The family of this 150-nucleotide RNA sequence from Oceanotoga teriensis is "Ribosomal protein L10 leader". It is annotated as a cis-regulatory leader. On this family, see Zengel and Lindahl, Prog Nucleic Acid Res Mol Biol 1994: "Diverse mechanisms for regulating ribosomal protein synthesis in Escherichia coli". Lineage of the source: Bacteria > Thermotogota > Thermotogae > Petrotogales > Oceanotoga.
[Rfam]
RNA sequence: AAAGUUAAUAAUGUCGUACCUAAGACAGUAGGUUAUAUUGAAAUCAAUAUAUUAAAGAUGCCUGCCGAGGUGCGUGGAGAAAAGAGACAAGUUUUUUGUUGUCUAUGUUCCGCGACCCUCAUUUAGUCGUGGAAUUUUUUUAUUUAAGGA
Numbered sequence: 001a002a003a004g005u006u007a008a009u010a011a012u013g014u015c016g017u018a019c020c021u022a023a024g025a026c027a028g029u030a031g032g033u034u035a036u037a038u039u040g041a042a043a044u045c046a047a048u049a050u051a052u053u054a055a056a057g058a059u060g061c062c063u064g065c066c067g068a069g070g071u072g073c074g075u076g077g078a079g080a081a082a083a084g085a086g087a088c089a090a091g092u093u094u095u096u097u098g099u100u101g102u103c104u105a106u107g108u109u110c111c112g113c114g115a116c117c118c119u120c121a122u123u124u125a126g127u128c129g130u131g132g133a134a135u136u137u138u139u140u141u142a143u144u145u146a147a148g149g150a
Stems, first nucleotide, its partner, number of pairs: 028065006034051007107135010